[Rfam]
Overview:
The record is a 72-nucleotide RNA from Hymenochirus boettgeri, which matches "tRNA" in Rfam. Pairs were carried over by alignment from the consensus structure, which is taken from published work. It scores 45 bits against the family's covariance model. Its family is annotated with triplet codon-amino acid adaptor activity in the Gene Ontology. Transfer RNA (tRNA) molecules are approximately 80 nucleotides in length. Rfam classes the family as a transfer RNA.
RNA sequence: UUCCCUGUGGUCUAGUGGUUAGGAUUCGGCGCUCUCACCGCCGCGGCCCGGGUUCGAUUCCGGUCAGGGAAA
Numbered sequence: 001u002u003c004c005c006u007g008u009g010g011u012c013u014a015g016u017g018g019u020u021a022g023g024a025u026u027c028g029g030c031g032c033u034c035u036c037a038c039c040g041c042c043g044c045g046g047c048c049c050g051g052g053u054u055c056g057a058u059u060c061c062g063g064u065c066a067g068g069g070a071a072a
Base pairs, nucleotide, nucleotide: 001071002070003069004068005067006066007065010025011024012023013022027043028042029041030040031039049063051061052060